Rfam assigns this 494-nucleotide RNA sequence from Occallatibacter riparius to the family "Bacterial RNase P class A".
NCBI's taxonomy places the organism under Bacteria, Acidobacteriota, Terriglobia, Acidobacteriaceae, Occallatibacter.
The family's RNA type in Rfam is ribozyme.
Rfam's curators write: Ribonuclease P (RNase P) is a ubiquitous endoribonuclease, found in archaea, bacteria and eukarya as well as chloroplasts and mitochondria. Its best characterised activity is the generation of mature 5'-ends of tRNAs by cleaving the 5'-leader elements of precursor-tRNAs.
[Rfam]
RNA sequence: CAGGAGGACCGGGCGGUCGCUGCCGGAUGCUCGAGCGCAAGCGAGAGCGGCCGGGGGAGGAAAGUCCGAACUCCGCAGGGCAGUGUGCCGGAUAACGUCCGGGACGCGGGCGUUAAGGCCCGUGGACGGCCAGUGCCACAGAGAACAUACCGCCUCGGCUACCCCGUCUUUUGGCGGGACUCCCCGGGCCGGUCCGCCUCAAUUGAGUUGGCGGCCGGCCCGGUGCCGGGGUAAGGGUGAAAAGGUGCGGUAAGAGCGCACCGCUGCGACGGUAACGGCGCAGGCAUGGUAAACCCCACACGGAGCAAGACCAAAUAGGGAGGGAAGCCGCGGGCAAGGAGCGAUGCCCGUGCUCGGUGCCGGCCCGGCGCCGAAAGCCCGCUCCAUGCAAUGGCGAAACCUCCGGGUAGGUCGCUGAUGAGCGCGAGCGGUAACGCUCCGCCUAGAGGAAUGACCGCACACGACAGAAUUCGGCUUACAGGUCCUUUUGCCGA
Numbered sequence: 001c002a003g004g005a006g007g008a009c010c011g012g013g014c015g016g017u018c019g020c021u022g023c024c025g026g027a028u029g030c031u032c033g034a035g036c037g038c039a040a041g042c043g044a045g046a047g048c049g050g051c052c053g054g055g056g057g058a059g060g061a062a063a064g065u066c067c068g069a070a071c072u073c074c075g076c077a078g079g080g081c082a083g084u085g086u087g088c089c090g091g092a093u094a095a096c097g098u099c100c101g102g103g104a105c106g107c108g109g110g111c112g113u114u115a116a117g118g119c120c121c122g123u124g125g126a127c128g129g130c131c132a133g134u135g136c137c138a139c140a141g142a143g144a145a146c147a148u149a150c151c152g153c154c155u156c157g158g159c160u161a162c163c164c165c166g167u168c169u170u171u172u173g174g175c176g177g178g179a180c181u182c183c184c185c186g187g188g189c190c191g192g193u194c195c196g197c198c199u200c201a202a203u204u205g206a207g208u209u210g211g212c213g214g215c216c217g218g219c220c221c222g223g224u225g226c227c228g229g230g231g232u233a234a235g236g237g238u239g240a241a242a243a244g245g246u247g248c249g250g251u252a253a254g255a256g257c258g259c260a261c262c263g264c265u266g267c268g269a270c271g272g273u274a275a276c277g278g279c280g281c282a283g284g285c286a287u288g289g290u291a292a293a294c295c296c297c298a299c300a301c302g303g304a305g306c307a308a309g310a311c312c313a314a315a316u317a318g319g320g321a322g323g324g325a326a327g328c329c330g331c332g333g334g335c336a337a338g339g340a341g342c343g344a345u346g347c348c349c350g351u352g353c354u355c356g357g358u359g360c361c362g363g364c365c366c367g368g369c370g371c372c373g374a375a376a377g378c379c380c381g382c383u384c385c386a387u388g389c390a391a392u393g394g395c396g397a398a399a400c401c402u403c404c405g406g407g408u409a410g411g412u413c414g415c416u417g418a419u420g421a422g423c424g425c426g427a428g429c430g431g432u433a434a435c436g437c438u439c440c441g442c443c444u445a446g447a448g449g450a451a452u453g454a455c456c457g458c459a460c461a462c463g464a465c466a467g468a469a470u471u472c473g474g475c476u477u478a479c480a481g482g483u484c485c486u487u488u489u490g491c492c493g494a
Base pairs, nucleotide, nucleotide: 001490002489003488004487005486006485007484008483009482010481011479013458014457015456016455017454018453020057021056023054024053025052026051028049029048030047031046032045062477063476064475066474067473068472069471070470071305072304073303074302080389081388083301084300085299086298087297088102089101090100091099092098103127105124106123107122108121109120110119111118128296129295133294134293135290136289137288150236151235152232153231154230155229156228157227158226159225244262245261246260247259248258249257263285264283265282266281267280268279270277271276309413310412311411312410319404320403321402322401323400382396384394385393386392422442423441424440426439427438428437429436430435